[Rfam]
RNA sequence: CACUACACCGAGUGGCCAGAUUAUUAUGAUCUCUGAACACAUAAUAAUCUGGCCACUCGGUGUAGAA
Numbered sequence: 001c002a003c004u005a006c007a008c009c010g011a012g013u014g015g016c017c018a019g020a021u022u023a024u025u026a027u028g029a030u031c032u033c034u035g036a037a038c039a040c041a042u043a044a045u046a047a048u049c050u051g052g053c054c055a056c057u058c059g060g061u062g063u064a065g066a067a
Stems, first nucleotide, its partner, number of pairs: 004064014019049010

This 67-nucleotide sequence from Pipistrellus kuhlii belongs to the Rfam family "mir-9256 microRNA precursor family".
It scores 83 bits against the family's covariance model.
Taxonomically the source falls in Pipistrellus (Eukaryota, Bilateria, Vertebrata, Teleostomi).